The record is a 64-nucleotide sequence from Conger conger, which matches "Selenocysteine insertion sequence 1" in Rfam.
RNA sequence: CGCACGUUUGUGAGGGCCUCUCAGUAAACCUGCUCUGGGAUGGGAGGCCUGAUGUUCCUGUGCG
Numbered sequence: 001c002g003c004a005c006g007u008u009u010g011u012g013a014g015g016g017c018c019u020c021u022c023a024g025u026a027a028a029c030c031u032g033c034u035c036u037g038g039g040a041u042g043g044g045a046g047g048c049c050u051g052a053u054g055u056u057c058c059u060g061u062g063c064g
Base pairs, nucleotide, nucleotide: 001064002063003062004061005060015049016048017047018046019045020044021043022042023041029039030038031037
Pairs were carried over by alignment from the consensus structure, which is taken from published work. The match comes from Rfam's covariance-model search (41 bits). Rfam classes the family as a cis-regulatory element. The organism belongs to Conger, within Eukaryota. About the family: The incorporation of selenocysteine into a protein sequence is directed by an in-frame UGA codon (usually a stop codon) within the coding region of the mRNA. Selenoprotein mRNAs contain a conserved secondary structure in the 3' UTR that is required for the distinction of UGA stop from UGA selenocysteine. The selenocysteine insertion sequence (SECIS) is around 60 nt in length and adopts a hairpin structure which is sufficiently well-defined and conserved to act as a computational screen for selenoprotein genes.